The family of this 418-nucleotide sequence from Pteropus alecto is "Small Cajal body-specific RNA 2". The literature on the family includes a 2004 paper in Curr Biol by Tycowski et al., "Guide RNAs with 5' caps and novel box C/D snoRNA-like domains for modification of snRNAs in metazoa". Pairs were carried over by alignment from the consensus structure, which is taken from published work. The organism belongs to Pteropus, within Eukaryota. Its family is annotated with nucleolus and RNA processing in the Gene Ontology.
[Rfam]
RNA sequence: CUCAACGGGAGGGAGAGCGCCUUGGGGUGCGGGUUGUGUGUUUUGUGUCGUGGUGUCGCGUGGAAGGCGUGUGUGGGCCGAGUGUGUGAGUGGACGCGUAUGUGAGAGCGCGUGGGGCGUGCAAGGUGAGUGCGUGCACUCCCCCCCUUGGCCUCUACUCCCGCCUACACAUUGAUCUUAUUUGAUCGGGUUGUGACCCCAGCCCCGCCGGGCGGACCCGAAAUGAAAAGCUCCCCUCCUGCGAAGCCCUCUCCUCGGGGCGCUGUGCAGCGAGGCCCCUUGGGCGGCGGUAACGCCGCGGUCCCGGAGGUCCCGGAACCGGUCCUACGGGGCCCGGCGCUCAGAAGUGAUGAAUUGAUCAGAUAGACGAGGCCAGGCUUGUCCCGGGCCGCUGAUUAUCGAGGCGAUUCUGAUCUGA
Dot-bracket structure: ...................................................(((..((((((.....)))))).............((......)).....(((...((((.((............)).))))...)))...........)))...........................(((..((((.((..(..(((.((...)).)))).)).)))).....))).......................((((.(((.(((..((.(((..(((((......)).)))..))).)))))))).))))........(((((((....))).))))....((((......((((((.............((((.((......)).))))..............))))))...)))).